[Rfam]
RNA: Group II catalytic intron D1-D4-6
RNA sequence: GAAGUCCGUCACGAUGAAGGUGUAGCGAACCGCAUCGGCCCCGAGCCGUGCGUUGGCGUCCGUGAGGGCGUCGGCGAAGCGUCGGUAGGGGAGCGCAUAGGCCAGCUAUCGAGCCACGAAAGUUACAUCUCCCGGGUGCCGACGACGUUGGGUAGUCGGAAGGCAACACGGACAGGCGCGUCAUCGCGAGUGCCUGCCCGACCCGGCGUGGUCGCAGACCC
Dot-bracket structure: ...........(((((..(((.[.[[..))).))))).((((..(((((((((((((((((....)))))))))))...)).)))).))))...................(.((((((.............(((((((((..((((........))))...)))....(((.(((((((......]].]))))))).))))))))))))))))........
Numbered sequence: 001g002a003a004g005u006c007c008g009u010c011a012c013g014a015u016g017a018a019g020g021u022g023u024a025g026c027g028a029a030c031c032g033c034a035u036c037g038g039c040c041c042c043g044a045g046c047c048g049u050g051c052g053u054u055g056g057c058g059u060c061c062g063u064g065a066g067g068g069c070g071u072c073g074g075c076g077a078a079g080c081g082u083c084g085g086u087a088g089g090g091g092a093g094c095g096c097a098u099a100g101g102c103c104a105g106c107u108a109u110c111g112a113g114c115c116a117c118g119a120a121a122g123u124u125a126c127a128u129c130u131c132c133c134g135g136g137u138g139c140c141g142a143c144g145a146c147g148u149u150g151g152g153u154a155g156u157c158g159g160a161a162g163g164c165a166a167c168a169c170g171g172a173c174a175g176g177c178g179c180g181u182c183a184u185c186g187c188g189a190g191u192g193c194c195u196g197c198c199c200g201a202c203c204c205g206g207c208g209u210g211g212u213c214g215c216a217g218a219c220c221c
Stems, first nucleotide, its partner, number of pairs: 012037005019031003023189001025187002039091004045086004049081002051076011111213001113212006132206006138164003143158004169200003173196007